RNA sequence: UGUUUGCUAUGAUGGAUCACAAGGACGGUAUCUUAGUAAGCUGGCUCUUGAAAAAGGCCUCCUUGAUUAUACACAUCCUAAACUGGUCAUAUAUUCUGAGCAAACA
Dot-bracket structure: (((((((.............................((((.....................))))..................................)))))))
Numbered sequence: 001u002g003u004u005u006g007c008u009a010u011g012a013u014g015g016a017u018c019a020c021a022a023g024g025a026c027g028g029u030a031u032c033u034u035a036g037u038a039a040g041c042u043g044g045c046u047c048u049u050g051a052a053a054a055a056g057g058c059c060u061c062c063u064u065g066a067u068u069a070u071a072c073a074c075a076u077c078c079u080a081a082a083c084u085g086g087u088c089a090u091a092u093a094u095u096c097u098g099a100g101c102a103a104a105c106a
Stems, first nucleotide, its partner, number of pairs: 001106007037065004